[Rfam]
RNA: tRNA
RNA sequence: GCUCUCGUGGUCUAGUGGUUUAGGACGCCACCCUCUCACGGUGGAAAUCGAGGGUUCGAGUCCCUCCGGGAGCG
Numbered sequence: 001g002c003u004c005u006c007g008u009g010g011u012c013u014a015g016u017g018g019u020u021u022a023g024g025a026c027g028c029c030a031c032c033c034u035c036u037c038a039c040g041g042u043g044g045a046a047a048u049c050g051a052g053g054g055u056u057c058g059a060g061u062c063c064c065u066c067c068g069g070g071a072g073c074g
Base pairs, nucleotide, nucleotide: 001073002072003071004070005069006068007067010026011025012024013023028044029043030042031041032040050066051065052064053063054062